RNA sequence: GUGGUUGUGAUGAUUAUAAACAAUUCCUCGUACUGAAUGCUAUAUGCAUGACAGACACUUUACACCCAUAGAAUAUGAGCAACU
Numbered sequence: 001g002u003g004g005u006u007g008u009g010a011u012g013a014u015u016a017u018a019a020a021c022a023a024u025u026c027c028u029c030g031u032a033c034u035g036a037a038u039g040c041u042a043u044a045u046g047c048a049u050g051a052c053a054g055a056c057a058c059u060u061u062a063c064a065c066c067c068a069u070a071g072a073a074u075a076u077g078a079g080c081a082a083c084u
Stems, first nucleotide, its partner, number of pairs: 003084002006081002
Dot-bracket structure: ..((.((........................................................................)).))
RNA: Small nucleolar RNA snoR8a
Organism: Lathyrus oleraceus